[Rfam]
RNA sequence: CUUCACCGAACCCAGCCACAGCGGAUCGCCCACCCGGUCCUGGCCGUAGGUGGCGAGCAACGCCUGCGCCUC
Numbered sequence: 001c002u003u004c005a006c007c008g009a010a011c012c013c014a015g016c017c018a019c020a021g022c023g024g025a026u027c028g029c030c031c032a033c034c035c036g037g038u039c040c041u042g043g044c045c046g047u048a049g050g051u052g053g054c055g056a057g058c059a060a061c062g063c064c065u066g067c068g069c070c071u072c
Stems, first nucleotide, its partner, number of pairs: 014026001016024002031068001033066001035062002040057002044053003
RNA: ASpks TB sRNA
Organism: Labedaea rhizosphaerae